Annotation: A member of the RNA family "Streptococcus sRNA 10" from Streptococcus ferus, 107 nucleotides long. The organism belongs to Streptococcus, within Bacteria. On this family, see Tesorero et al., PLoS One 2013: "Novel regulatory small RNAs in Streptococcus pyogenes". A search with the family's covariance model found it, with a score of 65 bits. By type it is a small RNA.
RNA sequence: ACUAAGGGAGUAGCUAGCGGAUUAUCCGUGACAAGGCCGUCAAUACGAAAGAAAUUUCCGGCCUCGUCUUAAACAGCGAGACUUGUCAUAUAAACAGGUCUUUUUUC
Numbered sequence: 001a002c003u004a005a006g007g008g009a010g011u012a013g014c015u016a017g018c019g020g021a022u023u024a025u026c027c028g029u030g031a032c033a034a035g036g037c038c039g040u041c042a043a044u045a046c047g048a049a050a051g052a053a054a055u056u057u058c059c060g061g062c063c064u065c066g067u068c069u070u071a072a073a074c075a076g077c078g079a080g081a082c083u084u085g086u087c088a089u090a091u092a093a094a095c096a097g098g099u100c101u102u103u104u105u106u107c
Stems, first nucleotide, its partner, number of pairs: 005029001007027002011024003014020001030068003034064006042057002046051001078102009
Dot-bracket structure: ....(.((..((((.....).))).)).)(((.((((((..((..(....)....)).)))))).))).........(((((((((.......))))))))).....